Source information: MIR1435 microRNA precursor family: a 200-nucleotide sequence from Dichanthelium oligosanthes. The base pairs follow the family's consensus structure, which was predicted with RNAalifold. A search with the family's covariance model found it, with a score of 97 bits. Rfam 15.1 lists 1,765 matches to the family in 31 species. NCBI's taxonomy places the organism under Eukaryota, Poales, Panicoideae, Paniceae, Dichanthelium. Its family is annotated with miRNA-mediated post-transcriptional gene silencing and RISC complex in the Gene Ontology.
RNA sequence: UAGUUUUGUCCUAAGUCAAACUAUCUCAAGUUUGACCAAAUUUAUAGAGAAAAAUAUCAGCAUUUAUGACACCAAAUAAGUAUCAUUGGAUUCAUCAUGAAAUAUAUUUUCAUAAUAUACCUAUUUGGUGUUAUAGAUAUUAAUACAAUUAUCUAUAAAUUUGGUCAAACCUAAGAUAGUUUGACUUAGAAGAAAACUAG
Numbered sequence: 001u002a003g004u005u006u007u008g009u010c011c012u013a014a015g016u017c018a019a020a021c022u023a024u025c026u027c028a029a030g031u032u033u034g035a036c037c038a039a040a041u042u043u044a045u046a047g048a049g050a051a052a053a054a055u056a057u058c059a060g061c062a063u064u065u066a067u068g069a070c071a072c073c074a075a076a077u078a079a080g081u082a083u084c085a086u087u088g089g090a091u092u093c094a095u096c097a098u099g100a101a102a103u104a105u106a107u108u109u110u111c112a113u114a115a116u117a118u119a120c121c122u123a124u125u126u127g128g129u130g131u132u133a134u135a136g137a138u139a140u141u142a143a144u145a146c147a148a149u150u151a152u153c154u155a156u157a158a159a160u161u162u163g164g165u166c167a168a169a170c171c172u173a174a175g176a177u178a179g180u181u182u183g184a185c186u187u188a189g190a191a192g193a194a195a196a197c198u199a200g
Stems, first nucleotide, its partner, number of pairs: 005195003009191001011189016031169005045155004050150002055145003059141002062138007072128006